[Rfam]
A member of the RNA family "MIR2629 microRNA precursor family" from Medicago truncatula, 72 nucleotides long. Pairs were carried over by alignment from the consensus structure, which was predicted with RNAalifold. Lineage of the source: Eukaryota > Streptophyta > Mesangiospermae > Hologalegina > Medicago. Rfam links the family to the GO terms miRNA-mediated post-transcriptional gene silencing and RISC complex. The match comes from Rfam's covariance-model search (63 bits).
RNA sequence: AUGAAACAUUUUCCUCGGCAGUUAACUGCAGCCGGAUUUCAAAUUCCUCGGCAGUUAACUGCCGAGGGGAUA
Dot-bracket structure: ...........((.(((((((((((((((.....................))))))))))))))).))....